[Rfam]
Background:
The record is a 62-nucleotide sequence from Tessaracoccus aquimaris, which matches "Actino-pnp RNA" in Rfam.

RNA sequence: UCUGGUCCUCGGUAGUGGUCUUCGGGUGCUCAUGCCCCCGCGGAUCUCGAUCGAAGACCGGC
Numbered sequence: 001u002c003u004g005g006u007c008c009u010c011g012g013u014a015g016u017g018g019u020c021u022u023c024g025g026g027u028g029c030u031c032a033u034g035c036c037c038c039c040g041c042g043g044a045u046c047u048c049g050a051u052c053g054a055a056g057a058c059c060g061g062c
Base pairs, nucleotide, nucleotide: 002061003060004059005058006057007056009054010053011052012051013050017046018045019044020043021042023040024039025038026037028035029034

Pairs were carried over by alignment from the consensus structure, which is taken from published work. It scores 59 bits against the family's covariance model. Lineage of the source: Bacteria > Bacillati > Propionibacteriales > Propionibacteriaceae > Tessaracoccus. The family's RNA type in Rfam is cis-regulatory element.